A member of the RNA family "pemK RNA", 98 nucleotides long.
RNA sequence: ACAAUGAUACUCCCGUCCAGUCACAGCCCCUUAUAUAUGAAGGGAUCACGCAAUGAGGGCGGCUCCCGGAGAACCCGGGAGGGGUUAGACUCCCGUGG
Numbered sequence: 001a002c003a004a005u006g007a008u009a010c011u012c013c014c015g016u017c018c019a020g021u022c023a024c025a026g027c028c029c030c031u032u033a034u035a036u037a038u039g040a041a042g043g044g045a046u047c048a049c050g051c052a053a054u055g056a057g058g059g060c061g062g063c064u065c066c067c068g069g070a071g072a073a074c075c076c077g078g079g080a081g082g083g084g085u086u087a088g089a090c091u092c093c094c095g096u097g098g
Stems, first nucleotide, its partner, number of pairs: 012095001013062006063081003067077003082094003